[Rfam]
RNA sequence: AUUACCGGACUCACAAAACCCAACCACAAGUUCGGUUGGUGCGUCUGUCCGGGUCGGGGCGCGUAAGCCGCCCAACCUCAUCCCGUUCCCUCGCGGAACAGGGAGUGUUAGCGCACGGCUGAGGGAACUACAAAAGCCUCGGGCCAUCGUGCCCGAGGCUGUUUACUCCGUUCUCGCGGGGGGUUCG
Numbered sequence: 001a002u003u004a005c006c007g008g009a010c011u012c013a014c015a016a017a018a019c020c021c022a023a024c025c026a027c028a029a030g031u032u033c034g035g036u037u038g039g040u041g042c043g044u045c046u047g048u049c050c051g052g053g054u055c056g057g058g059g060c061g062c063g064u065a066a067g068c069c070g071c072c073c074a075a076c077c078u079c080a081u082c083c084c085g086u087u088c089c090c091u092c093g094c095g096g097a098a099c100a101g102g103g104a105g106u107g108u109u110a111g112c113g114c115a116c117g118g119c120u121g122a123g124g125g126a127a128c129u130a131c132a133a134a135a136g137c138c139u140c141g142g143g144c145c146a147u148c149g150u151g152c153c154c155g156a157g158g159c160u161g162u163u164u165a166c167u168c169c170g171u172u173c174u175c176g177c178g179g180g181g182g183g184u185u186c187g
Stems, first nucleotide, its partner, number of pairs: 005052006013044002020039006053076002057073005062067001084187002087183009096173004102169006108122005135160010
The record is a 187-nucleotide RNA from Halobacterium salinarum, which matches "Sense overlapping transcript RNA 2652 (sot)" in Rfam.
Rfam describes the family as follows. It is associated with IS1341-type transposase (tnpB) genes, at the 3'-end in H. salinarum NRC-1. The tetraloop structural motif may be functional.